[Rfam]
A member of the RNA family "Mammalian CPEB3 ribozyme" from Alligator sinensis, 76 nucleotides long. Its family is annotated with RNA nuclease activity in the Gene Ontology. Taxonomically the source falls in Alligator (Eukaryota, Chordata, Sarcopterygii, Sauria). It scores 38 bits against the family's covariance model.
RNA sequence: GGUUGCAAGUGUGAGGCCAUAGCAGAAGCACUCAUGAUGCGGCCUGUCCAAUUCCAAACAGUCUGUGAAUUCUACU
Numbered sequence: 001g002g003u004u005g006c007a008a009g010u011g012u013g014a015g016g017c018c019a020u021a022g023c024a025g026a027a028g029c030a031c032u033c034a035u036g037a038u039g040c041g042g043c044c045u046g047u048c049c050a051a052u053u054c055c056a057a058a059c060a061g062u063c064u065g066u067g068a069a070u071u072c073u074a075c076u
Stems, first nucleotide, its partner, number of pairs: 015044004021076002024073004028040003048065001051062003